[Rfam]
RNA sequence: AGGAAUUAGUGUAAUGGUAACACAUAAGACUCAUGAUCUUUUAAUGGUAGUUCGAUUCUACUGUUCCUA
Number, nucleotide and partner (000 for none) at each position: 001a068002g067003g066004a065005a064006u063007u000008a000009g023010u022011g021012u020013a000014a000015u000016g000017g000018u000019a000020a012021c011022a010023c009024a000025u000026a040027a039028g038029a037030c000031u000032c000033a000034u000035g000036a000037u029038c028039u027040u026041u000042u000043a000044a000045u000046g062047g061048u060049a059050g058051u000052u000053c000054g000055a000056u000057u000058c050059u049060a048061c047062u046063g006064u005065u004066c003067c002068u001069a000